[Rfam]
RNA: Clostridiales-1 RNA
RNA sequence: CAAAAAUGUCGUCAAUGGCCAGACAGCUAGGGGAUUCAUACCCUAUGCUGGCUGGACAUUCGACGACCUGACCUGUAUGAGCAAGUAAGGCAUUCGCCUGGAUUGCGAAUACAGGCAGCAAUGUCGAAAGUGCACAGCACGAAGACAUCGACUUUUA
Numbered sequence: 001c002a003a004a005a006a007u008g009u010c011g012u013c014a015a016u017g018g019c020c021a022g023a024c025a026g027c028u029a030g031g032g033g034a035u036u037c038a039u040a041c042c043c044u045a046u047g048c049u050g051g052c053u054g055g056a057c058a059u060u061c062g063a064c065g066a067c068c069u070g071a072c073c074u075g076u077a078u079g080a081g082c083a084a085g086u087a088a089g090g091c092a093u094u095c096g097c098c099u100g101g102a103u104u105g106c107g108a109a110u111a112c113a114g115g116c117a118g119c120a121a122u123g124u125c126g127a128a129a130g131u132g133c134a135c136a137g138c139a140c141g142a143a144g145a146c147a148u149c150g151a152c153u154u155u156u157a
Stems, first nucleotide, its partner, number of pairs: 002156004008067004014060004019055004024050004030043003034039001072115007081106004088099004119150001121148005130140004